Overview
Shown here is a 47-nucleotide RNA sequence from Menispermum dauricum, a member of the family "Plastid-rpl16 group II-D1 intron".
RNA sequence: AAGAGCGUCGAGUCAAUAAAGACUGAGGGGAUUGACUCAGUAAAAAA
Numbered sequence: 001a002a003g004a005g006c007g008u009c010g011a012g013u014c015a016a017u018a019a020a021g022a023c024u025g026a027g028g029g030g031a032u033u034g035a036c037u038c039a040g041u042a043a044a045a046a047a
Base pairs, nucleotide, nucleotide: 007041008040010038011037012036013035014034015033016032017031
Overview
From the family's description: Plastid-rpl16 is a non-coding RNA (ncRNA) recognised in plastids. It was recognised in and intronic region of a ribosome rpl16 gene. On this family, see Richter et al., Plant Commun 2023: "Retrograde signaling in plants: A critical review focusing on the GUN pathway and beyond".